[Rfam]
RNA sequence: GGAAUGUGCUUCUAGGGUUCCGAUUCGGUAAAUUAACAACCGAGUGGCUGGUCCAAGAGAAGCAGCCAGCUUGAGAUUCUGAGUGCCGGAAUACGAGUUGGUCACACGGCGGGAAAAAAGCCCGGGAGAG
Numbered sequence: 001g002g003a004a005u006g007u008g009c010u011u012c013u014a015g016g017g018u019u020c021c022g023a024u025u026c027g028g029u030a031a032a033u034u035a036a037c038a039a040c041c042g043a044g045u046g047g048c049u050g051g052u053c054c055a056a057g058a059g060a061a062g063c064a065g066c067c068a069g070c071u072u073g074a075g076a077u078u079c080u081g082a083g084u085g086c087c088g089g090a091a092u093a094c095g096a097g098u099u100g101g102u103c104a105c106a107c108g109g110c111g112g113g114a115a116a117a118a119a120g121c122c123c124g125g126g127a128g129a130g
Base pairs, nucleotide, nucleotide: 007064008063009062010061011060012059015054016053020051021050022048023045024044025043026042027041028040065103066101067100068099069098070097071096072095105125107128111123112122113121
This 130-nucleotide RNA sequence from Gloeocapsa sp. PCC 7428 belongs to the Rfam family "Guanidine-I riboswitch aptamer".
This family represents a conserved RNA structure found upstream of the ykkC and yxkD genes in Bacillus subtilis and related genes in other bacteria.
A search with the family's covariance model found it, with a score of 78 bits.